The record is a 190-nucleotide RNA from Taduhovirus hiberniae, which matches "RAGATH-7 RNA" in Rfam.
The family's consensus secondary structure is taken from published work.
The match comes from Rfam's covariance-model search (175 bits).
On this family, see Weinberg et al., Nat Chem Biol 2015: "New classes of self-cleaving ribozymes revealed by comparative genomics analysis".
Lineage of the source: Viruses > Duplodnaviria > Caudoviricetes > Crassvirales > Taduhovirus hiberniae.

[Rfam]
RNA sequence: AGCUAUUAUAAUUUAUUAUGCACAAAUAGAUUAUAAUAGUAAAACCACGUGGUAAGGGCACAGUUAGGUUCGCUGUGAGUGCGCCCUUUGUAGCAACUAACCAAAGCAAGUAUAGAUGGGAAUAAGCUAUUACCUCGAUAGGCUUAAUGAGGUGCUUGACAGUCUGACACUAACUGAACAAUAAGUGUCA
Dot-bracket structure: .(((((((((((((((.........))))))))))))))).............((((.((((((.......)))))).......))))............[[[...(((((.....]]]............(((((............))))))))))......(((((((............)))))))